[Rfam]
Group II catalytic intron D1-D4-3: a 173-nucleotide sequence from Chitinophaga costaii. The pairing is the family consensus, mapped onto this sequence. The literature on the family includes a 2001 paper in Trends Genet by Bonen and Vogel, "The ins and outs of group II introns". About the family: Group II introns are found in rRNA, tRNA and mRNA of organelles in fungi, plants and protists, and also in mRNA in bacteria.
Nucleotides: 173
Base pairs, nucleotide, nucleotide: 001016002015003014004013005012006011028173029172031170032169035166036165040160041159042158043157044156045155046151047150048149049148050147062146063145064144065143066142071138072137073136077133078132079131080130081129082128085113086112087111088110091106092105093104094103
Number, partner (000 for none) and nucleotide at each position: 001016u002015c003014c004013a005012u006011c007000g008000c009000g010000a011006g012005g013004u014003g015002g016001a017000a018000u019000c020000u021000g022000a023000a024000g025000g026000a027000a028173g029172c030000u031170g032169u033000c034000g035166g036165c037000a038000a039000a040160g041159u042158u043157c044156u045155g046151g047150c048149c049148c050147g051000a052000g053000g054000a055000a056000c057000a058000c059000g060000a061000a062146c063145a064144c065143c066142a067000u068000u069000a070000g071138g072137c073136a074000g075000a076000a077133g078132c079131u080130g081129u082128g083000g084000g085113g086112g087111g088110u089000a090000a091106g092105c093104u094103u095000g096000c097000c098000a099000a100000a101000c102000a103094a104093a105092g106091c107000g108000a109000a110088g111087c112086c113085c114000a115000a116000a117000g118000a119000u120000u121000a122000c123000a124000c125000g126000g127000a128082c129081a130080u131079a132078g133077u134000a135000c136073u137072g138071u139000a140000g141000a142066u143065g144064g145063u146062g147050c148049g149048g150047g151046u152000a153000g154000a155045u156044g157043g158042a159041a160040u161000g162000a163000a164000a165036g166035u167000u168000u169032a170031u171000c172029g173028u